[Rfam]
RNA sequence: UUGCCUUCAACUAACGAGUAAGGAAAACAAAGCGGGUGGUGAGAGCUGCCUGCCGCGCUGAUAUAAAUAUUAUGCGCACGAAUUUAUGGAGGGGUAAUAGGCUGGCCGACCGCUGAUGCUGCUUACUUUGCAGAACUCGUUCGUGCGGACCUCCC
Numbered sequence: 001u002u003g004c005c006u007u008c009a010a011c012u013a014a015c016g017a018g019u020a021a022g023g024a025a026a027a028c029a030a031a032g033c034g035g036g037u038g039g040u041g042a043g044a045g046c047u048g049c050c051u052g053c054c055g056c057g058c059u060g061a062u063a064u065a066a067a068u069a070u071u072a073u074g075c076g077c078a079c080g081a082a083u084u085u086a087u088g089g090a091g092g093g094g095u096a097a098u099a100g101g102c103u104g105g106c107c108g109a110c111c112g113c114u115g116a117u118g119c120u121g122c123u124u125a126c127u128u129u130g131c132a133g134a135a136c137u138c139g140u141u142c143g144u145g146c147g148g149a150c151c152u153c154c155c
Stems, first nucleotide, its partner, number of pairs: 004023004032053008055077004093155002099152003103148001105146001107143002111139002119133004
RNA: U12 minor spliceosomal RNA